Shown here is a 46-nucleotide RNA sequence from Conger conger, a member of the family "Histone 3' UTR stem-loop". The match comes from Rfam's covariance-model search (37 bits). Lineage of the source: Eukaryota > Metazoa > Vertebrata > Elopocephala > Conger. Pairs were carried over by alignment from the consensus structure, which is taken from published work.

RNA sequence: UCAAAGGCUCUUUUAAGAGCCACCCACGCUAUUAAAAAGCGGCAUU
Numbered sequence: 001u002c003a004a005a006g007g008c009u010c011u012u013u014u015a016a017g018a019g020c021c022a023c024c025c026a027c028g029c030u031a032u033u034a035a036a037a038a039g040c041g042g043c044a045u046u
Base pairs, nucleotide, nucleotide: 006021007020008019009018010017011016